[Rfam]
Nucleotides: 060
Base pairs, nucleotide, nucleotide: 002057003056004055005054007052008051009050010049013046014045015044016043017042018041021040022039023038024037025036
Number, partner (000 for none) and nucleotide at each position: 001000g002057g003056c004055a005054g006000c007052u008051u009050u010049g011000u012000g013046u014045g015044a016043u017042g018041u019000u020000a021040c022039u023038u024037c025036u026000g027000a028000a029000a030000u031000a032000u033000c034000g035000g036025a037024g038023a039022a040021g041018a042017c043016a044015u045014c046013a047000g048000a049010u050009a051008a052007a053000u054005c055004u056003g057002u058000g059000c060000u